[Rfam]
RNA sequence: AGUUGCAAAGAUAAAAACACAUUGAGAAUCCGUUGGUAGUCGGAUCACUGCUUGCAGUCAGUAACCUUCCUCCUUGGUCGUCCAUUCUUUGUGCAUGAUAA
Numbered sequence: 001a002g003u004u005g006c007a008a009a010g011a012u013a014a015a016a017a018c019a020c021a022u023u024g025a026g027a028a029u030c031c032g033u034u035g036g037u038a039g040u041c042g043g044a045u046c047a048c049u050g051c052u053u054g055c056a057g058u059c060a061g062u063a064a065c066c067u068u069c070c071u072c073c074u075u076g077g078u079c080g081u082c083c084a085u086u087c088u089u090u091g092u093g094c095a096u097g098a099u100a101a
Stems, first nucleotide, its partner, number of pairs: 004093008028045005047058004069077002
The family of this 101-nucleotide sequence from Coprobacillus cateniformis is "azaaromatic riboswitch aptamer (yjdF RNA)". The organism belongs to Coprobacillus, within Bacteria. The match comes from Rfam's covariance-model search (70 bits).